[Rfam]
RNA sequence: UGUUUAAUGACUAAGGAAGGUCCCUGUCCCCGCCAGGGGCUGUGAGCAACACCAUGGCUGCCCCAGGGCUGGCCAAUUGGGCAGAUGCCCAGGGGCUGAGAACA
Numbered sequence: 001u002g003u004u005u006a007a008u009g010a011c012u013a014a015g016g017a018a019g020g021u022c023c024c025u026g027u028c029c030c031c032g033c034c035a036g037g038g039g040c041u042g043u044g045a046g047c048a049a050c051a052c053c054a055u056g057g058c059u060g061c062c063c064c065a066g067g068g069c070u071g072g073c074c075a076a077u078u079g080g081g082c083a084g085a086u087g088c089c090c091a092g093g094g095g096c097u098g099a100g101a102a103c104a
Base pairs, nucleotide, nucleotide: 001104002103003102004101005100
This 104-nucleotide RNA sequence from Homo sapiens belongs to the Rfam family "Small nucleolar RNA SNORD23". It is annotated as a C/D-box small nucleolar RNA. Rfam 15.1 lists 153 matches to the family in 134 species. On this family, see Galardi et al., Mol Cell Biol 2002: "Purified box C/D snoRNPs are able to reproduce site-specific 2'-O-methylation of target RNA in vitro". Gene Ontology terms of the family: nucleolus and RNA processing. Taxonomically the source falls in Homo (Eukaryota, Bilateria, Teleostomi, Simiiformes).